[Rfam]
RNA sequence: GCCCAGAGUAGAAGCGUUCAGCGCGUUGCACCGGCAUGGUGCGCGUCGCCCGGAAAUUGCUCGACCC
Numbered sequence: 001g002c003c004c005a006g007a008g009u010a011g012a013a014g015c016g017u018u019c020a021g022c023g024c025g026u027u028g029c030a031c032c033g034g035c036a037u038g039g040u041g042c043g044c045g046u047c048g049c050c051c052g053g054a055a056a057u058u059g060c061u062c063g064a065c066c067c
Stems, first nucleotide, its partner, number of pairs: 006062005015052001018054002021049003024045003
RNA: Xanthine riboswitch aptamer (NMT1 RNA)